Shown here is a 76-nucleotide RNA sequence from Limosilactobacillus ingluviei, a member of the family "Group II catalytic intron D1-D4-1". Lineage of the source: Bacteria > Bacillota > Bacilli > Lactobacillales > Limosilactobacillus. Pairs were carried over by alignment from the consensus structure.
RNA sequence: CAAGCCAGCCAGUGAUGGUGGUUGAGUCUGGCAAAAGUCAGCCGAGGUCAUGGUAGCGACCAAGAUCGCGAAGGCC
Numbered sequence: 001c002a003a004g005c006c007a008g009c010c011a012g013u014g015a016u017g018g019u020g021g022u023u024g025a026g027u028c029u030g031g032c033a034a035a036a037g038u039c040a041g042c043c044g045a046g047g048u049c050a051u052g053g054u055a056g057c058g059a060c061c062a063a064g065a066u067c068g069c070g071a072a073g074g075c076c
Base pairs, nucleotide, nucleotide: 001024002023004022005021006020007019009018010017011016038045039044047076049074056069057068058067059066